[Rfam]
RNA sequence: GCGGUUCCGGUUCCCGCCCGCCCGCGCGUCACUCCGACCGCGAGAGAUGAAGGCGACCCGGCGGCC
Dot-bracket structure: ..(((.((((....((((..(...........................)..))))..))))..)))